[Rfam]
RNA sequence: GCAGAACUGUGUGCAUGGUUUUCCAUCCGUGUCUGGUGGUAUGGUCUGUUUGCGUUUUGCAUUUAAACCAUGCUGCUCACACAAAACCUGUAGCCAAAGAUGAACGUGAGAUCAUAGUACUGGUCUAGUGAUGUCUGAAAGACAAGCCUCCCACUGGCCAGCCUCCAAACUCUCAAACAUCU
Numbered sequence: 001g002c003a004g005a006a007c008u009g010u011g012u013g014c015a016u017g018g019u020u021u022u023c024c025a026u027c028c029g030u031g032u033c034u035g036g037u038g039g040u041a042u043g044g045u046c047u048g049u050u051u052g053c054g055u056u057u058u059g060c061a062u063u064u065a066a067a068c069c070a071u072g073c074u075g076c077u078c079a080c081a082c083a084a085a086a087c088c089u090g091u092a093g094c095c096a097a098a099g100a101u102g103a104a105c106g107u108g109a110g111a112u113c114a115u116a117g118u119a120c121u122g123g124u125c126u127a128g129u130g131a132u133g134u135c136u137g138a139a140a141g142a143c144a145a146g147c148c149u150c151c152c153a154c155u156g157g158c159c160a161g162c163c164u165c166c167a168a169a170c171u172c173u174c175a176a177a178c179a180u181c182u
Stems, first nucleotide, its partner, number of pairs: 013091003030083003034079003037075006044068002047065002051061003107175005120161006127155004132146001133143003
A member of the RNA family "Small nucleolar RNA SNORA23" from Ramphastos sulfuratus, 182 nucleotides long. By type it is an H/ACA-box small nucleolar RNA. Taxonomically the source falls in Ramphastos (Eukaryota, Saurischia, Coelurosauria, Coraciimorphae). The match comes from Rfam's covariance-model search (153 bits).